[Rfam]
RNA: FMN riboswitch aptamer (RFN element)
Organism: Tepiditoga spiralis
RNA sequence: UGAGUUCUUCAGGGCAGGGUGAAAUUCCCUACCGGCGGUGAUAGUCCGCGAGCCUUUUAGGUUGAAUCGGUGAAAUUCCGAUACCGACGGUUAAAGUCCGGAUGAGAGAAGACUAUA
Numbered sequence: 001u002g003a004g005u006u007c008u009u010c011a012g013g014g015c016a017g018g019g020u021g022a023a024a025u026u027c028c029c030u031a032c033c034g035g036c037g038g039u040g041a042u043a044g045u046c047c048g049c050g051a052g053c054c055u056u057u058u059a060g061g062u063u064g065a066a067u068c069g070g071u072g073a074a075a076u077u078c079c080g081a082u083a084c085c086g087a088c089g090g091u092u093a094a095a096g097u098c099c100g101g102a103u104g105a106g107a108g109a110a111g112a113c114u115a116u117a
Base pairs, nucleotide, nucleotide: 004114006112007111008110009109010108017029018028019027031097032096033086034085035049036048037047038046044084045083052062053061054060066082067081068080069079070078088100089099090098